[Rfam]
RNA sequence: UCAGCGGCACACGACUGGCGCAGGUGGGCAACCACCAGGGAGUGACGAGUCGGCAUCGAUCGCCUGGGUGCCCUCA
Numbered sequence: 001u002c003a004g005c006g007g008c009a010c011a012c013g014a015c016u017g018g019c020g021c022a023g024g025u026g027g028g029c030a031a032c033c034a035c036c037a038g039g040g041a042g043u044g045a046c047g048a049g050u051c052g053g054c055a056u057c058g059a060u061c062g063c064c065u066g067g068g069u070g071c072c073c074u075c076a
Stems, first nucleotide, its partner, number of pairs: 005047002008044001011043002015039002017064004024035004053071005
The record is a 76-nucleotide RNA sequence from Nocardioides sp. Root614, which matches "ZMP/ZTP riboswitch aptamer (pfl RNA motif)" in Rfam. Taxonomically the source falls in Nocardioides (Bacteria, Bacillati, Actinomycetes, Nocardioidaceae).